permuted transfer-messenger RNA: a 234-nucleotide sequence from Telmatospirillum siberiense. From the family's description: Bacterial tmRNA, also known as 10Sa RNA or SsrA, is named for its dual tRNA and mRNA-like properties. Its role is to liberate the mRNA from a stalled ribosome. To accomplish this part of the tmRNA is used as a reading frame that ends in a translation stop signal. The broken mRNA is replaced in the ribosome by the tmRNA and translation of the tmRNA leads to addition of a proteolysis tag to the incomplete protein enabling recognition by a protease. Rfam classes the family as a non-coding RNA gene. The match comes from Rfam's covariance-model search (141 bits).
RNA sequence: GGAACUAAACGCCUCACAGAAUAAGCGUUACGGACCCGGGGGCGGUACCCGGCGCCUCCACCACUAUCCCGCCGUUCCGGUUCAUGAGCGGCUUUGUGGGGGCGAAAUAGGAUCGACGUGCGUAGUAAAGGUCAGGCUUGUUCUCGGUAUGAGUGCGACCGUCCAUCAGGCUCAAACACACUAAGUGCCAACGAUAACAUCGCUGUCACCGAAAAUGUUGCUCUCGCCGCCUAA
Numbered sequence: 001g002g003a004a005c006u007a008a009a010c011g012c013c014u015c016a017c018a019g020a021a022u023a024a025g026c027g028u029u030a031c032g033g034a035c036c037c038g039g040g041g042g043c044g045g046u047a048c049c050c051g052g053c054g055c056c057u058c059c060a061c062c063a064c065u066a067u068c069c070c071g072c073c074g075u076u077c078c079g080g081u082u083c084a085u086g087a088g089c090g091g092c093u094u095u096g097u098g099g100g101g102g103c104g105a106a107a108u109a110g111g112a113u114c115g116a117c118g119u120g121c122g123u124a125g126u127a128a129a130g131g132u133c134a135g136g137c138u139u140g141u142u143c144u145c146g147g148u149a150u151g152a153g154u155g156c157g158a159c160c161g162u163c164c165a166u167c168a169g170g171c172u173c174a175a176a177c178a179c180a181c182u183a184a185g186u187g188c189c190a191a192c193g194a195u196a197a198c199a200u201c202g203c204u205g206u207c208a209c210c211g212a213a214a215a216u217g218u219u220g221c222u223c224u225c226g227c228c229g230c231c232u233a234a
Base pairs, nucleotide, nucleotide: 001144002143003142004141005140014134016132017131026122027121028120030119031118032117036052037051038050039049040048053104054103055102056101057100058099059098060097061096145161146160147159148158